A member of the RNA family "small nucleolar RNA snoR134", 156 nucleotides long. Pairs were carried over by alignment from the consensus structure, which was predicted with RNAalifold. It scores 96 bits against the family's covariance model. It is annotated as an H/ACA-box small nucleolar RNA.
RNA sequence: UUGCACGUCGCUACCCCGGGCUCUUUGGAUAAUUGAAUAGAUGAAGAAAGCAGCCCCAAUGCUUGUGCUAAAACUACGCCGUUUUGUGUUGCAGAUUUCGCCGCUUUGUACCUUUCAAUCCCACGGCCUUUCUGUGUCAAAAAAACGCCUAAAUUU
Numbered sequence: 001u002u003g004c005a006c007g008u009c010g011c012u013a014c015c016c017c018g019g020g021c022u023c024u025u026u027g028g029a030u031a032a033u034u035g036a037a038u039a040g041a042u043g044a045a046g047a048a049a050g051c052a053g054c055c056c057c058a059a060u061g062c063u064u065g066u067g068c069u070a071a072a073a074c075u076a077c078g079c080c081g082u083u084u085u086g087u088g089u090u091g092c093a094g095a096u097u098u099c100g101c102c103g104c105u106u107u108g109u110a111c112c113u114u115u116c117a118a119u120c121c122c123a124c125g126g127c128c129u130u131u132c133u134g135u136g137u138c139a140a141a142a143a144a145a146c147g148c149c150u151a152a153a154u155u156u
Base pairs, nucleotide, nucleotide: 003068004067005066006065007064010062011061018056019055020054021053022052023050024049025047026046078149080147081146082145083144084143087139088138090136091135092134093133094132095131100127101126102125